[Rfam]
RNA sequence: GAGUUAGUCGUCACUUGCAAGGUUAAUCCCCUCAGGGGAGAAGCCGUAGCGAAAGCGAGUCUGAACAGGGCGUUCAGUAAGUGGCGCUAGACGCGAAACCGGGUGAUCUACCCUUGUCCAGGAUGAAGUGAGGGUAAAACCUCAUGGAGGUCCGAACCAGUGUGGGUUGAAAACCGCUUGGAUGAGGUGAGGGUAGGAGCGAAAGACCAAUCAAACUCGGUGAUAGCUCGUA
Number, nucleotide and partner (000 for none) at each position: 001g000002a000003g000004u000005u089006a088007g087008u000009c086010g085011u084012c083013a082014c081015u080016u079017g078018c077019a000020a000021g045022g044023u043024u042025a000026a000027u039028c038029c037030c000031c000032u000033c000034a000035g000036g000037g029038g028039a027040g000041a000042a024043g023044c022045c021046g000047u000048a000049g056050c055051g000052a000053a000054a000055g050056c049057g000058a000059g071060u070061c069062u068063g000064a000065a000066c000067a000068g062069g061070g060071c059072g000073u000074u000075c000076a000077g018078u017079a016080a015081g014082u013083g012084g011085c010086g009087c007088u006089a005090g000091a000092c230093g229094c000095g227096a000097a000098a000099c220100c219101g218102g217103g216104u215105g000106a000107u000108c196109u195110a194111c193112c192113c191114u190115u189116g188117u187118c186119c184120a000121g153122g152123a151124u150125g000126a000127a000128g145129u144130g143131a142132g141133g140134g000135u000136a000137a000138a000139a000140c133141c132142u131143c130144a129145u128146g000147g000148a000149g000150g124151u123152c122153c121154g000155a000156a000157c181158c180159a179160g000161u000162g177163u176164g175165g174166g000167u000168u000169g000170a000171a000172a000173a000174c165175c164176g163177c162178u000179u159180g158181g157182a000183u000184g119185a000186g118187g117188u116189g115190a114191g113192g112193g111194u110195a109196g108197g000198a000199g207200c000201g000202a000203a000204a000205g000206a000207c199208c000209a000210a000211u000212c000213a000214a000215a104216c103217u102218c101219g100220g099221u000222g000223a000224u000225a000226g000227c095228u000229c093230g092231u000232a000

Bacterial large subunit ribosomal RNA: a 232-nucleotide part of an RNA from Melioribacter roseus. Gene Ontology terms of the family: ribosome and structural constituent of ribosome.